[Rfam]
RNA sequence: AUGUAAUCCAGUAUAUGGGGAUGUAUUCCAUACAUUCAACGCCAUGAAUAAGGAAAAAAUAAAGGGGAGAUAAAAUCCCCCCUUUUUGAUUAACU
Numbered sequence: 001a002u003g004u005a006a007u008c009c010a011g012u013a014u015a016u017g018g019g020g021a022u023g024u025a026u027u028c029c030a031u032a033c034a035u036u037c038a039a040c041g042c043c044a045u046g047a048a049u050a051a052g053g054a055a056a057a058a059a060u061a062a063a064g065g066g067g068a069g070a071u072a073a074a075a076u077c078c079c080c081c082c083u084u085u086u087u088g089a090u091u092a093a094c095u
Base pairs, nucleotide, nucleotide: 010036011035012034016032017031019029020028061085062084063083064082065081066080067079069077070076071075
RNA: sraA
Organism: Enterobacter cancerogenus